[Rfam]
RNA sequence: AUCGAAACAAGACGCCAGACGCAGGAGGCCCUUAUGUUCGUCGAUGUUGUGGUUCUAGCCGGUAUCGGCACUGUUGGCCUGAUGCUCGCCUUCUUCGGUGGCGUCGGAUACUUCAUCUGGAAGGACUCUCACAAGCGCGACAAGAAAGCGUAAGUCGAGUUCUCCAGGUACACAGGCACGCAAGGCACCUCGGGCGACUUCGGUCGCCCUUUUUUUCG
Numbered sequence: 001a002u003c004g005a006a007a008c009a010a011g012a013c014g015c016c017a018g019a020c021g022c023a024g025g026a027g028g029c030c031c032u033u034a035u036g037u038u039c040g041u042c043g044a045u046g047u048u049g050u051g052g053u054u055c056u057a058g059c060c061g062g063u064a065u066c067g068g069c070a071c072u073g074u075u076g077g078c079c080u081g082a083u084g085c086u087c088g089c090c091u092u093c094u095u096c097g098g099u100g101g102c103g104u105c106g107g108a109u110a111c112u113u114c115a116u117c118u119g120g121a122a123g124g125a126c127u128c129u130c131a132c133a134a135g136c137g138c139g140a141c142a143a144g145a146a147a148g149c150g151u152a153a154g155u156c157g158a159g160u161u162c163u164c165c166a167g168g169u170a171c172a173c174a175g176g177c178a179c180g181c182a183a184g185g186c187a188c189c190u191c192g193g194g195c196g197a198c199u200u201c202g203g204u205c206g207c208c209c210u211u212u213u214u215u216u217c218g
Stems, first nucleotide, its partner, number of pairs: 011099001013097001049059002076087002079084001176186002179184001192209007

Rfam assigns this 218-nucleotide RNA from Pseudomonas sp. FeS53a to the family "PhrS". Taxonomically the source falls in Pseudomonas (Bacteria, Pseudomonadati, Pseudomonadota, Pseudomonadales). For this family Rfam cites "Identification of 17 Pseudomonas aeruginosa sRNAs and prediction of sRNA-encoding genes in 10 diverse pathogens using the bioinformatic tool sRNAPredict2" (Livny et al., Nucleic Acids Res, 2006).